[Rfam]
RNA sequence: GCUGCGCUGUGCCACGAGACUUUGGGAGAGGCGCAGAGCGCAGCGCCCGGGGCAGCCUGCUGCUUUCAUCUCUGCCUGCCAUCUGCAGC
Number, nucleotide and partner (000 for none) at each position: 001g089002c088003u087004g086005c085006g000007c000008u000009g000010u000011g000012c000013c000014a000015c000016g000017a000018g000019a000020c000021u000022u000023u000024g000025g000026g000027a000028g000029a000030g000031g000032c000033g000034c000035a000036g000037a000038g000039c000040g000041c000042a000043g000044c000045g000046c000047c000048c000049g000050g000051g000052g000053c000054a000055g000056c000057c000058u000059g000060c000061u000062g000063c000064u000065u000066u000067c000068a000069u000070c000071u000072c000073u000074g000075c000076c000077u000078g000079c000080c000081a000082u000083c000084u000085g005086c004087a003088g002089c001

Shown here is an 89-nucleotide sequence from Bambusicola thoracicus, a member of the family "Small nucleolar RNA U83B". Lineage of the source: Eukaryota > Gnathostomata > Neognathae > Perdicinae > Bambusicola. It scores 37 bits against the family's covariance model. About the family: U83B belongs to the C/D family of snoRNAs. U83B like U83A has no documented RNA target and they share the same host gene with the C/D box snoRNA U43 (RPL3). N.B. U83A/B/C have no sequence similarity with the U83 snoRNA that was cloned by Jady and Kiss (2000). The literature on the family includes a 2000 paper in Nucleic Acids Res by Jady and Kiss, "Characterisation of the U83 and U84 small nucleolar RNAs: two novel 2'-O-ribose methylation guide RNAs that lack complementarities to ribosomal RNAs". The family has 21 seed sequences and 966 matches in Rfam 15.1.